The record is a 74-nucleotide sequence from Gehongia tenuis, which matches "S10-Clostridia ribosomal protein leader" in Rfam.
Pairs were carried over by alignment from the consensus structure, which is taken from published work.
NCBI's taxonomy places the organism under Bacteria, Clostridia, Christensenellales, Christensenellaceae, Gehongia.
By type it is a cis-regulatory leader.
RNA sequence: UAAUUGGGAUGAAGCGGAAGGUUACCGUGUCGGACACGGAUAGUUUUCGCGGACAAGUCCGAAAAAUCGGGCGA
Numbered sequence: 001u002a003a004u005u006g007g008g009a010u011g012a013a014g015c016g017g018a019a020g021g022u023u024a025c026c027g028u029g030u031c032g033g034a035c036a037c038g039g040a041u042a043g044u045u046u047u048c049g050c051g052g053a054c055a056a057g058u059c060c061g062a063a064a065a066a067u068c069g070g071g072c073g074a
Base pairs, nucleotide, nucleotide: 014050015049016048018047019046020045021044025039026038027037028036029035054073057072058071059070060069